Overview
The record is a 79-nucleotide RNA from Branchiostoma belcheri, which matches "mir-4872 microRNA precursor family" in Rfam.
[Rfam]
RNA sequence: CCACAUGGAGUGCCGGGGUAAUUAAAACUCUGAGUCCUCUAAACACAUCAGAGUUUUAUUGCCCUGGCUUUUUAUGUGG
Numbered sequence: 001c002c003a004c005a006u007g008g009a010g011u012g013c014c015g016g017g018g019u020a021a022u023u024a025a026a027a028c029u030c031u032g033a034g035u036c037c038u039c040u041a042a043a044c045a046c047a048u049c050a051g052a053g054u055u056u057u058a059u060u061g062c063c064c065u066g067g068c069u070u071u072u073u074a075u076g077u078g079g
Stems, first nucleotide, its partner, number of pairs: 001079002004076004009071002012068006019061004024057010034046002

Pairs were carried over by alignment from the consensus structure, which was predicted with RNAalifold. Rfam links the family to the GO terms miRNA-mediated post-transcriptional gene silencing and RISC complex. The match comes from Rfam's covariance-model search (74 bits).